[Rfam]
RNA sequence: UGGAAGGUGCUCCUCGAACUGGACUGAUCUGACCCUCGACAAGCCAUGUCAUCCCAGGUCAGGGGCACUUUUCACGUCACCGGCACACCACCGGCCAUGAAAGGCCGAG
Numbered sequence: 001u002g003g004a005a006g007g008u009g010c011u012c013c014u015c016g017a018a019c020u021g022g023a024c025u026g027a028u029c030u031g032a033c034c035c036u037c038g039a040c041a042a043g044c045c046a047u048g049u050c051a052u053c054c055c056a057g058g059u060c061a062g063g064g065g066c067a068c069u070u071u072u073c074a075c076g077u078c079a080c081c082g083g084c085a086c087a088c089c090a091c092c093g094g095c096c097a098u099g100a101a102a103g104g105c106c107g108a109g
Stems, first nucleotide, its partner, number of pairs: 002073012016060002019057004025051004030046001033043001092107005

Rfam assigns this 109-nucleotide sequence from Cellulomonas composti to the family "Actinobacteria sRNA Ms_IGR-7". A search with the family's covariance model found it, with a score of 48 bits. The family's RNA type in Rfam is small RNA. The organism belongs to Cellulomonas, within Bacteria. Pairs were carried over by alignment from the consensus structure.